[Rfam]
RNA: ClpQY promoter
Organism: Kluyvera genomosp. 3
RNA sequence: CCCGUACGCGGUACGGGGCUACUCUAUCCGUAUUGGUAAAGGGGUCUGCUCGUG
Numbered sequence: 001c002c003c004g005u006a007c008g009c010g011g012u013a014c015g016g017g018g019c020u021a022c023u024c025u026a027u028c029c030g031u032a033u034u035g036g037u038a039a040a041g042g043g044g045u046c047u048g049c050u051c052g053u054g
Stems, first nucleotide, its partner, number of pairs: 001017007